[Rfam]
The record is a 190-nucleotide RNA sequence, which matches "Pseudomonas sRNA P27" in Rfam. A search with the family's covariance model found it, with a score of 198 bits. Pairs were carried over by alignment from the consensus structure, which was predicted with WAR. The family's RNA type in Rfam is small RNA.
RNA sequence: GGGUUUAACUCCUGCUUGUUACCGUUUCAUCUGGCCUAGGCCUGAUGUCGUUUUGGUGUCUGAUUCGGUAAGGAACCGGGAGCACCAUCUGCGUAGGCUUGUUGGUUUAAGACUUGCGUCGCCUACGGUCUUGGAUAGCCCCCGCCAGGCAGGGACCCCAAUCUUUCAAUUGGCGCAAUUACUUGCGCCA
Numbered sequence: 001g002g003g004u005u006u007a008a009c010u011c012c013u014g015c016u017u018g019u020u021a022c023c024g025u026u027u028c029a030u031c032u033g034g035c036c037u038a039g040g041c042c043u044g045a046u047g048u049c050g051u052u053u054u055g056g057u058g059u060c061u062g063a064u065u066c067g068g069u070a071a072g073g074a075a076c077c078g079g080g081a082g083c084a085c086c087a088u089c090u091g092c093g094u095a096g097g098c099u100u101g102u103u104g105g106u107u108u109a110a111g112a113c114u115u116g117c118g119u120c121g122c123c124u125a126c127g128g129u130c131u132u133g134g135a136u137a138g139c140c141c142c143c144g145c146c147a148g149g150c151a152g153g154g155a156c157c158c159c160a161a162u163c164u165u166u167c168a169a170u171u172g173g174c175g176c177a178a179u180u181a182c183u184u185g186c187g188c189c190a
Stems, first nucleotide, its partner, number of pairs: 002158002005155002011149004023050002028047004033042003054087006060079003064075003091145003096140004105136010172189006